Annotation
Rfam assigns this 88-nucleotide RNA from Bacillus sp. V3-13 to the family "c-di-GMP-I riboswitch aptamer". Lineage of the source: Bacteria > Bacillati > Bacillota > Caryophanales > Bacillus. The match comes from Rfam's covariance-model search (73 bits).
[Rfam]
RNA sequence: CCUCUAUAAAGGCAAAAUCACUGAAAAGUGGUGACGCAAAGCUACAGGGACUAACGCAGGAACAUUGCCAGGUCAGCCAGCUGCUUUA
Number, nucleotide and partner (000 for none) at each position: 001c000002c000003u000004c000005u000006a000007u000008a000009a000010a000011g000012g037013c036014a000015a000016a000017a032018u031019c030020a029021c028022u027023g000024a000025a000026a000027a022028g021029u020030g019031g018032u017033g000034a000035c000036g013037c012038a000039a000040a082041g081042c080043u079044a000045c000046a000047g078048g077049g074050a073051c072052u000053a000054a000055c000056g068057c067058a066059g065060g000061a000062a000063c000064a000065u059066u058067g057068c056069c000070a000071g000072g051073u050074c049075a000076g000077c048078c047079a043080g042081c041082u040083g000084c000085u000086u000087u000088a000